Source information
The family of this 129-nucleotide sequence from Otolemur garnettii is "Small nucleolar RNA SNORA44". Pairs were carried over by alignment from the consensus structure, which was predicted with PFOLD. ACA44 is a member of the H/ACA class of snoRNA that guide the sites of modification of uridines to pseudouridines. A reference for the family is Huttenhofer et al. (2001), "RNomics: an experimental approach that identifies 201 candidates for novel, small, non-messenger RNAs in mouse", EMBO J. Lineage of the source: Eukaryota > Gnathostomata > Sarcopterygii > Theria > Otolemur.
RNA sequence: CAAUAUGUUUCCAAAGGCUGUGGCUGGUUGUGGCCAUGGGAUCUCCAACUGCAUGGGAGAGCCAUCUGGAGAGACUGACAGCUCAGGUCAGCACAAUGCCUGCAGCCGCCACUCGCCGUUCCUAUGAUG
Numbered sequence: 001c002a003a004u005a006u007g008u009u010u011c012c013a014a015a016g017g018c019u020g021u022g023g024c025u026g027g028u029u030g031u032g033g034c035c036a037u038g039g040g041a042u043c044u045c046c047a048a049c050u051g052c053a054u055g056g057g058a059g060a061g062c063c064a065u066c067u068g069g070a071g072a073g074a075c076u077g078a079c080a081g082c083u084c085a086g087g088u089c090a091g092c093a094c095a096a097u098g099c100c101u102g103c104a105g106c107c108g109c110c111a112c113u114c115g116c117c118g119u120u121c122c123u124a125u126g127a128u129g
Stems, first nucleotide, its partner, number of pairs: 011039002016035007068122004073117001081109002084102004